The family of this 132-nucleotide RNA sequence from Plantactinospora soyae is "c-di-AMP riboswitch aptamer (ydaO/yuaA leader)". Rfam describes the family as follows. This family represents a conserved RNA structure found upstream of the ydaO and yuaA genes in Bacillus subtilis and related genes in other bacteria. Pairs were carried over by alignment from the consensus structure. Taxonomically the source falls in Plantactinospora (Bacteria, Bacillati, Actinomycetes, Micromonosporales).
[Rfam]
RNA sequence: CGCUGAUCGCCGCCUAAUCGCCACCCGGCGAACCGGGGACCCAAGCACGUGGGGUGAAUCCGCGCGAGCGGUAGGGACCUCUUCCAUCCCGAACCCGUCAGCUAACCCGGUCGGCGGCCGACGGAAGGGAUA
Numbered sequence: 001c002g003c004u005g006a007u008c009g010c011c012g013c014c015u016a017a018u019c020g021c022c023a024c025c026c027g028g029c030g031a032a033c034c035g036g037g038g039a040c041c042c043a044a045g046c047a048c049g050u051g052g053g054g055u056g057a058a059u060c061c062g063c064g065c066g067a068g069c070g071g072u073a074g075g076g077a078c079c080u081c082u083u084c085c086a087u088c089c090c091g092a093a094c095c096c097g098u099c100a101g102c103u104a105a106c107c108c109g110g111u112c113g114g115c116g117g118c119c120g121a122c123g124g125a126a127g128g129g130a131u132a
Base pairs, nucleotide, nucleotide: 011116012115013114014113018031019030020029032111033110034109035108036107037106042051043050052096053095054094060071061070062069063068074090075089076088077087